The record is a 215-nucleotide sequence from Bacillus sp. DNRA2, which matches "SR1 sRNA" in Rfam. The base pairs follow the family's consensus structure, which is taken from published work. Rfam classes the family as a small RNA. A reference for the family is Heidrich et al. (2007), "In vitro analysis of the interaction between the small RNA SR1 and its primary target ahrC mRNA", Nucleic Acids Res.
RNA sequence: UACAACAAAUUCUUGAUCAAUUUUUUCCGAAGGGAAGGGAGAUCCAUAGUGGGUACAAUCGUAUGUCAAACUUGUGAUAUGACUAUUGAUCAUUUUGAGGAUGAAAAAGUAACGGUUCUUUAUGCGAAGUGUCAAUGCUGCAACGAGGAAAAAAAGGAAUCAAAAGAACAUUAAAUAAAUGAAAAAAGCAUGCAGAGGCAUGCUUUUUCAUUUUU
Numbered sequence: 001u002a003c004a005a006c007a008a009a010u011u012c013u014u015g016a017u018c019a020a021u022u023u024u025u026u027c028c029g030a031a032g033g034g035a036a037g038g039g040a041g042a043u044c045c046a047u048a049g050u051g052g053g054u055a056c057a058a059u060c061g062u063a064u065g066u067c068a069a070a071c072u073u074g075u076g077a078u079a080u081g082a083c084u085a086u087u088g089a090u091c092a093u094u095u096u097g098a099g100g101a102u103g104a105a106a107a108a109g110u111a112a113c114g115g116u117u118c119u120u121u122a123u124g125c126g127a128a129g130u131g132u133c134a135a136u137g138c139u140g141c142a143a144c145g146a147g148g149a150a151a152a153a154a155a156g157g158a159a160u161c162a163a164a165a166g167a168a169c170a171u172u173a174a175a176u177a178a179a180u181g182a183a184a185a186a187a188g189c190a191u192g193c194a195g196a197g198g199c200a201u202g203c204u205u206u207u208u209c210a211u212u213u214u215u
Stems, first nucleotide, its partner, number of pairs: 018109001021107005026099001028097005034091002050085003054081001057078001062077001136158001177213008186205004